[Rfam]
RNA sequence: CCAUGGUGGCAGCUGGGGACAGCCCCAUGGUGGUGGUAGC
Numbered sequence: 001c002c003a004u005g006g007u008g009g010c011a012g013c014u015g016g017g018g019a020c021a022g023c024c025c026c027a028u029g030g031u032g033g034u035g036g037u038a039g040c
Stems, first nucleotide, its partner, number of pairs: 001030006